Rfam assigns this 105-nucleotide sequence from Cohnella xylanilytica to the family "Purine riboswitch aptamer".
RNA sequence: UAGGAAUCAUUCAGGACGACUCAUAUAAUUUUGGGGAUAUGGCCCAAGAAGUUUCUACCGGAUAACCAACGCAAUUAUCCGACUAUGAGUGAGAGCGAACGCAUC
Numbered sequence: 001u002a003g004g005a006a007u008c009a010u011u012c013a014g015g016a017c018g019a020c021u022c023a024u025a026u027a028a029u030u031u032u033g034g035g036g037a038u039a040u041g042g043c044c045c046a047a048g049a050a051g052u053u054u055c056u057a058c059c060g061g062a063u064a065a066c067c068a069a070c071g072c073a074a075u076u077a078u079c080c081g082a083c084u085a086u087g088a089g090u091g092a093g094a095g096c097g098a099a100c101g102c103a104u105c
Base pairs, nucleotide, nucleotide: 019090020089021088022087023086024085025084029049030048031047032046033045034044035043059081060080061079062078063077064076065075
NCBI's taxonomy places the organism under Bacteria, Bacillota, Caryophanales, Paenibacillaceae, Cohnella.